[Rfam]
RNA: mraW RNA
Organism: Demequina mangrovi
RNA sequence: AGGAGCACGUGCCCCGUGGCCUCCUCCCGGAUCGCUCUGGCGGACUUCCCCCCGCCAGAGGAGCUCGGAGGGAGACCACGAGGCACGAGCACAGCCCA
Numbered sequence: 001a002g003g004a005g006c007a008c009g010u011g012c013c014c015c016g017u018g019g020c021c022u023c024c025u026c027c028c029g030g031a032u033c034g035c036u037c038u039g040g041c042g043g044a045c046u047u048c049c050c051c052c053c054g055c056c057a058g059a060g061g062a063g064c065u066c067g068g069a070g071g072g073a074g075a076c077c078a079c080g081a082g083g084c085a086c087g088a089g090c091a092c093a094g095c096c097c098a
Stems, first nucleotide, its partner, number of pairs: 010085004015080002018077002021074005027068004032063001035060009